Annotation:
Group II catalytic intron D1-D4-3: a 171-nucleotide RNA sequence. Rfam links the family to the GO term Group II intron splicing. From the family's description: Group II introns are found in rRNA, tRNA and mRNA of organelles in fungi, plants and protists, and also in mRNA in bacteria. Pairs were carried over by alignment from the consensus structure.

RNA sequence: UCCAUCGUGAGGUGGAAUCUGAAGGAAGGUGGAGGCAAAUCUCUGGUCUGACGAACAGAAAUCACAUCAGGCUACAGUUAAGGAUAAGAUUGCAAUUCAAAUCGAAGUCCAAUAACUACUCGGGAUUAACUGUGGUAAAUGUGGCAGAUAGAUGGAGAGAAAGAAACGUGU
Numbered sequence: 001u002c003c004a005u006c007g008u009g010a011g012g013u014g015g016a017a018u019c020u021g022a023a024g025g026a027a028g029g030u031g032g033a034g035g036c037a038a039a040u041c042u043c044u045g046g047u048c049u050g051a052c053g054a055a056c057a058g059a060a061a062u063c064a065c066a067u068c069a070g071g072c073u074a075c076a077g078u079u080a081a082g083g084a085u086a087a088g089a090u091u092g093c094a095a096u097u098c099a100a101a102u103c104g105a106a107g108u109c110c111a112a113u114a115a116c117u118a119c120u121c122g123g124g125a126u127u128a129a130c131u132g133u134g135g136u137a138a139a140u141g142u143g144g145c146a147g148a149u150a151g152a153u154g155g156a157g158a159g160a161a162a163g164a165a166a167c168g169u170g171u
Stems, first nucleotide, its partner, number of pairs: 001016006028171001032167001036163001040158006046149005062144005071136003075132001077130005082110004088103004
Dot-bracket structure: ((((((....))))))...........(...(...(...(((((((((((...........(((((....(((.(.(((((((((..((((........))))...))))...............))))).).)))...))))))))))...))))))....)...)...)